[Rfam]
RNA: mir-9256 microRNA precursor family
Organism: Cnephaeus nilssonii
RNA sequence: AAAUACACUGAGUGGCCAGAUUAUUAUGAUCUCUGAUCGCGUAGUAAUCUGGCCACUCAGUGUGUGU
Numbered sequence: 001a002a003a004u005a006c007a008c009u010g011a012g013u014g015g016c017c018a019g020a021u022u023a024u025u026a027u028g029a030u031c032u033c034u035g036a037u038c039g040c041g042u043a044g045u046a047a048u049c050u051g052g053c054c055a056c057u058c059a060g061u062g063u064g065u066g067u
Stems, first nucleotide, its partner, number of pairs: 004064014019049010
Dot-bracket structure: ...((((((((((((((.((((((((((...........)))))))))).))))))))))))))...